A member of the RNA family "TPP riboswitch aptamer (THI element)" from Oceanobacillus zhaokaii, 104 nucleotides long.
Pairs were carried over by alignment from the consensus structure, which is taken from published work.
Rfam's curators write: Vitamin B(1) in its active form thiamin pyrophosphate (TPP) is an essential coenzyme that is synthesised by coupling of pyrimidine and thiazole moieties in bacteria.
Lineage of the source: Bacteria > Bacillota > Bacilli > Caryophanales > Oceanobacillus.

[Rfam]
RNA sequence: UGAAACUACUAGGGGCGCGAAUUGUGCUGAGAUAAGGAAUACUCCUUUGUCCCUUGGAACCUGAUCUGGGUAAUUCCAGCGAAGGGAAGUAGUCGGGGACAUGU
Numbered sequence: 001u002g003a004a005a006c007u008a009c010u011a012g013g014g015g016c017g018c019g020a021a022u023u024g025u026g027c028u029g030a031g032a033u034a035a036g037g038a039a040u041a042c043u044c045c046u047u048u049g050u051c052c053c054u055u056g057g058a059a060c061c062u063g064a065u066c067u068g069g070g071u072a073a074u075u076c077c078a079g080c081g082a083a084g085g086g087a088a089g090u091a092g093u094c095g096g097g098g099a100c101a102u103g104u
Stems, first nucleotide, its partner, number of pairs: 006092005011054004017027003034047005060085003066079004